[Rfam]
RNA sequence: AUGACAAGUACAUAUGCUUUUCGUAUAAUCUCAAGAAUUGGCUUGAGAGUCUCUACGAGAUCACCGUAAAUGAUCUGGCUACGAAAAUGAAGACCUCGCUC
Numbered sequence: 001a002u003g004a005c006a007a008g009u010a011c012a013u014a015u016g017c018u019u020u021u022c023g024u025a026u027a028a029u030c031u032c033a034a035g036a037a038u039u040g041g042c043u044u045g046a047g048a049g050u051c052u053c054u055a056c057g058a059g060a061u062c063a064c065c066g067u068a069a070a071u072g073a074u075c076u077g078g079c080u081a082c083g084a085a086a087a088u089g090a091a092g093a094c095c096u097c098g099c100u101c
Stems, first nucleotide, its partner, number of pairs: 018087008029048007058076006